The family of this 46-nucleotide RNA from Danionella cerebrum is "Histone 3' UTR stem-loop". A search with the family's covariance model found it, with a score of 40 bits. Rfam 15.1 lists 44,596 matches to the family in 976 species.
[Rfam]
RNA sequence: CCAAAGGCUCUUUUAAGAGCCACCCAUUCCCUCAUGUAAAGAGCAU
Numbered sequence: 001c002c003a004a005a006g007g008c009u010c011u012u013u014u015a016a017g018a019g020c021c022a023c024c025c026a027u028u029c030c031c032u033c034a035u036g037u038a039a040a041g042a043g044c045a046u
Stems, first nucleotide, its partner, number of pairs: 006021006
About the family: The mRNAs of metazoan histone genes lack a poly-A tail. 3' end processing occurs at a site between a highly conserved stem-loop (modelled by this family) and a purine rich region around 20 nts downstream (the histone downstream element, or HDE). The stem-loop is bound by a 31 kDa stem-loop binding protein (SLBP - also termed the histone hairpin binding protein, or HBP). Together with U7 snRNA binding of the HDE, SLBP binding nucleate s the formation of the processing complex. The histone 3' UTR stem-loop is also involved in nucleocytoplasmic transport of the mRNA, and in stability regulation and translation efficiency in the cytoplasm.